[Rfam]
RNA: U1 spliceosomal RNA
Nucleotides: 149
Stems, first nucleotide, its partner, number of pairs: 013106003017047005023042001025040003049075004056068002077102003080098003084094002123148002126145003131140003
Number, partner (000 for none) and nucleotide at each position: 001000a002000u003000a004000c005000c006000a007000a008000c009000c010000u011000g012000a013106c014105a015104g016000a017047g018046g019045a020044g021043a022000u023042a024000c025040c026039a027038u028000g029000a030000u031000c032000a033000u034000g035000a036000a037000g038027a039026u040025g041000a042023u043021u044020u045019u046018c047017c048000c049075a050074g051073g052072g053000u054000a055000a056068g057067g058000c059000u060000u061000a062000u063000c064000c065000a066000u067057c068056u069000c070000a071000c072052u073051u074050c075049u076000g077102c078101g079100a080098u081097u082096u083000c084094c085093c086000c087000a088000a089000a090000u091000g092000u093085g094084g095000g096082a097081a098080a099000c100079u101078u102077g103000a104015c105014u106013g107000c108000a109000c110000a111000u112000u113000u114000u115000u116000u117000g118000a119000u120000a121000g122000u123148g124147g125000a126145g127144g128143a129000c130000u131140g132139u133138g134000a135000u136000c137000a138133c139132a140131u141000u142000u143128u144127c145126c146000c147124c148123u149000a